[Rfam]
RNA sequence: CCAAAGGCUCUUUUAAGAGCCAACUAAUGAAUGAAAAUAUGAAAAU
Dot-bracket structure: .....((((((....)))))).........................
RNA: Histone 3' UTR stem-loop